Background: A member of the RNA family "Small nucleolar RNA SNORA15" from Oryzias sinensis, 141 nucleotides long. Rfam's curators write: ACA15 is a member of the H/ACA class of snoRNA that guide the sites of modification of uridines to pseudouridines.
RNA sequence: GCAUGGCUGAAUUCUGCCUCAGCUGGCCUGUGCUGGAGACAGUCAGACACCAUGCAAAAGCCAAGCCUCAUUUCUGCCUAAUGAUUGGUGGACAGAUGCUCCAAACCAGCGCUGUUCAGCUACACAGAAAUGAGUACAUAC
Numbered sequence: 001g002c003a004u005g006g007c008u009g010a011a012u013u014c015u016g017c018c019u020c021a022g023c024u025g026g027c028c029u030g031u032g033c034u035g036g037a038g039a040c041a042g043u044c045a046g047a048c049a050c051c052a053u054g055c056a057a058a059a060g061c062c063a064a065g066c067c068u069c070a071u072u073u074c075u076g077c078c079u080a081a082u083g084a085u086u087g088g089u090g091g092a093c094a095g096a097u098g099c100u101c102c103a104a105a106c107c108a109g110c111g112c113u114g115u116u117c118a119g120c121u122a123c124a125c126a127g128a129a130a131u132g133a134g135u136a137c138a139u140a141c
Stems, first nucleotide, its partner, number of pairs: 001055006014042003018038002067134010085122001087120001089118007
Dot-bracket structure: ((((((.......(((.((.................)).))).......))))))...........((((((((((........(.(.(((((((................))))))).).)..)))))))))).......
The base pairs follow the family's consensus structure, which was predicted with RNAfold.